[Rfam]
RNA sequence: AGGUAGAUGCACCCUGAUUGAACCCUCCGGCUUCGGCCGGGGGUUUCUUUC
Dot-bracket structure: .(((......)))..........((((((((....))))))))........